[Rfam]
RNA sequence: CCCGCCACUGUACCUGUCUGGUAAUGCAGUGACUAGUACAAUCCAGAGGUGAGCUGACAGAAAAUGCCAACUUAGGAAACAGAGUUACUCUUUCUGUGGUGGGUAACUUUGUGCCGAAGUUUGGGAACACAA
Numbered sequence: 001c002c003c004g005c006c007a008c009u010g011u012a013c014c015u016g017u018c019u020g021g022u023a024a025u026g027c028a029g030u031g032a033c034u035a036g037u038a039c040a041a042u043c044c045a046g047a048g049g050u051g052a053g054c055u056g057a058c059a060g061a062a063a064a065u066g067c068c069a070a071c072u073u074a075g076g077a078a079a080c081a082g083a084g085u086u087a088c089u090c091u092u093u094c095u096g097u098g099g100u101g102g103g104u105a106a107c108u109u110u111g112u113g114c115c116g117a118a119g120u121u122u123g124g125g126a127a128c129a130c131a132a
Stems, first nucleotide, its partner, number of pairs: 005049002008046003018036004022031002065125001067123001069122001070120003075115002080111006088103003
Small nucleolar RNA SNORA65: a 132-nucleotide RNA sequence from Apteryx owenii. The literature on the family includes a 2001 paper in EMBO J by Huttenhofer et al., "RNomics: an experimental approach that identifies 201 candidates for novel, small, non-messenger RNAs in mouse". Its Rfam clan is "SNORA65 clan". By type it is an H/ACA-box small nucleolar RNA. Taxonomically the source falls in Apteryx (Eukaryota, Craniata, Archelosauria, Saurischia).